The family of this 116-nucleotide RNA sequence from Celerinatantimonas diazotrophica is "Ribosomal S15 leader". Its Rfam clan is "Ribosomal Protein S15 Leader clan". NCBI's taxonomy places the organism under Bacteria, Pseudomonadati, Pseudomonadota, Gammaproteobacteria, Celerinatantimonas. Rfam describes the family as follows. The E. coli Ribosomal S15 gene 5' UTR can form two alternative structures. One that is a series of three hairpins, The other includes a pseudoknot. This structure causes translational regulation of the S15 protein. The alignment of this family contains only the final two hairpins which are conserved in other species, and also includes the complete region that forms the alternate structures. Rfam links the family to the GO term regulation of translation, ncRNA-mediated.

RNA sequence: UGUUGACGCUGAAUUAGUGAUUGGCGUUGACAUUGUUAGACUUAAUUAGGAGUAAUUCCAUGUCACUAAACAAUGAAGAAAAAGCAAAAAUCGUUGCUGAAUUUGGCCGUGGUGAA
Numbered sequence: 001u002g003u004u005g006a007c008g009c010u011g012a013a014u015u016a017g018u019g020a021u022u023g024g025c026g027u028u029g030a031c032a033u034u035g036u037u038a039g040a041c042u043u044a045a046u047u048a049g050g051a052g053u054a055a056u057u058c059c060a061u062g063u064c065a066c067u068a069a070a071c072a073a074u075g076a077a078g079a080a081a082a083a084g085c086a087a088a089a090a091u092c093g094u095u096g097c098u099g100a101a102u103u104u105g106g107c108c109g110u111g112g113u114g115a116a
Base pairs, nucleotide, nucleotide: 007026008025009024010023011022012021046070047069049067050066052064
Dot-bracket structure: ......((((((........))))))...................((.((.(...........).)).))..............................................